RNA sequence: CCAGUAAUAUCGUUAGGGUGACCAGAUUUAUCAAUAGAGGCACCUUCAACCAUUAAGAAGAACCCUUUAUUAUUUUUUUCAAGUUUAGAUAAUGCACUAUUUUC
Numbered sequence: 001c002c003a004g005u006a007a008u009a010u011c012g013u014u015a016g017g018g019u020g021a022c023c024a025g026a027u028u029u030a031u032c033a034a035u036a037g038a039g040g041c042a043c044c045u046u047c048a049a050c051c052a053u054u055a056a057g058a059a060g061a062a063c064c065c066u067u068u069a070u071u072a073u074u075u076u077u078u079u080c081a082a083g084u085u086u087a088g089a090u091a092a093u094g095c096a097c098u099a100u101u102u103u104c
Stems, first nucleotide, its partner, number of pairs: 004076001006074004012050003016046002019042002026035002055070001057068004083095002
The family of this 104-nucleotide RNA sequence from Staphylococcus lugdunensis is "Staphylococcus sRNA sau-13". Taxonomically the source falls in Staphylococcus lugdunensis (Bacteria, Bacillati, Bacillota, Staphylococcus). Pairs were carried over by alignment from the consensus structure, which was predicted with mfold.